A member of the RNA family "TPP riboswitch aptamer (THI element)" from Deferribacter desulfuricans, 95 nucleotides long. Its family is annotated with thiamine pyrophosphate binding in the Gene Ontology. Taxonomically the source falls in Deferribacter desulfuricans (Bacteria, Pseudomonadati, Deferribacterota, Deferribacteres).
[Rfam]
RNA sequence: AUUUUACCGUGGGGGUGCUCCAUAUGGGGCUGAGAUAAUACCCCUUGAACCUGAUCCGGAUAAUGCCGGCGCAGGGAAACGGUUUAGGAAAAACA
Numbered sequence: 001a002u003u004u005u006a007c008c009g010u011g012g013g014g015g016u017g018c019u020c021c022a023u024a025u026g027g028g029g030c031u032g033a034g035a036u037a038a039u040a041c042c043c044c045u046u047g048a049a050c051c052u053g054a055u056c057c058g059g060a061u062a063a064u065g066c067c068g069g070c071g072c073a074g075g076g077a078a079a080c081g082g083u084u085u086a087g088g089a090a091a092a093a094c095a
Stems, first nucleotide, its partner, number of pairs: 006083005011044004016038001017030005050075004056069004